[Rfam]
RNA: Mammalian CPEB3 ribozyme
RNA sequence: ACAGCAAGUUUGAGGCCAUAGCAGAAGUGCUCAUGGCACAGCCCUGUUGGAUUCCAAUGAAUCUGCUAAGUACUUU
Numbered sequence: 001a002c003a004g005c006a007a008g009u010u011u012g013a014g015g016c017c018a019u020a021g022c023a024g025a026a027g028u029g030c031u032c033a034u035g036g037c038a039c040a041g042c043c044c045u046g047u048u049g050g051a052u053u054c055c056a057a058u059g060a061a062u063c064u065g066c067u068a069a070g071u072a073c074u075u076u
Base pairs, nucleotide, nucleotide: 012044014043015042016041020076021075025071027039028038029037048065049064050063051062052061053060054059